The record is a 165-nucleotide sequence, which matches "Group II catalytic intron D1-D4-3" in Rfam.
Its family is annotated with Group II intron splicing in the Gene Ontology.
About the family: Group II introns are found in rRNA, tRNA and mRNA of organelles in fungi, plants and protists, and also in mRNA in bacteria.
The family has 406 seed sequences and 4,274 matches in Rfam 15.1.

RNA sequence: UAAAUCGCGAGAGAUAGUCUGAAGGAAGCCGCUAGCAAAUCUGUGAGCUGAUGACCAAAAACAUCAUAUGAGGCGUAGGCUGGAGACGAGCUAGCACAAGAUAGCGAAGUCAUGUGAUCUAACGGCCACCGUAAAUGAUGCAGUUGUGCAGAGAAAGUCGAUGCA
Numbered sequence: 001u002a003a004a005u006c007g008c009g010a011g012a013g014a015u016a017g018u019c020u021g022a023a024g025g026a027a028g029c030c031g032c033u034a035g036c037a038a039a040u041c042u043g044u045g046a047g048c049u050g051a052u053g054a055c056c057a058a059a060a061a062c063a064u065c066a067u068a069u070g071a072g073g074c075g076u077a078g079g080c081u082g083g084a085g086a087c088g089a090g091c092u093a094g095c096a097c098a099a100g101a102u103a104g105c106g107a108a109g110u111c112a113u114g115u116g117a118u119c120u121a122a123c124g125g126c127c128a129c130c131g132u133a134a135a136u137g138a139u140g141c142a143g144u145u146g147u148g149c150a151g152a153g154a155a156a157g158u159c160g161a162u163g164c165a
Base pairs, nucleotide, nucleotide: 001016002015005012006011030163031162035158036157040152041151042150043149044148045147046145047144048143049142050141062140063139064138065137066136067135073132074131075130078127079126080125081124083123085111086110087109090105091104092103093102